[Rfam]
RNA sequence: AAUCCGUGCUGGGGGAGCUACGGCUGAGAGGAAGCCGACUUUCGGCUUCGACCCCAAAAACCUGAACGGGGUAAUGCCCGCGUAGGGAAGCACGUGAACCAUUGG
Numbered sequence: 001a002a003u004c005c006g007u008g009c010u011g012g013g014g015g016a017g018c019u020a021c022g023g024c025u026g027a028g029a030g031g032a033a034g035c036c037g038a039c040u041u042u043c044g045g046c047u048u049c050g051a052c053c054c055c056a057a058a059a060a061c062c063u064g065a066a067c068g069g070g071g072u073a074a075u076g077c078c079c080g081c082g083u084a085g086g087g088a089a090g091c092a093c094g095u096g097a098a099c100c101a102u103u104g105g
Base pairs, nucleotide, nucleotide: 006093007092008091009090010089011055012054013053014052017024018023031049032048033047034046035045036044037043038042061086062085063084064083067080068079069078070077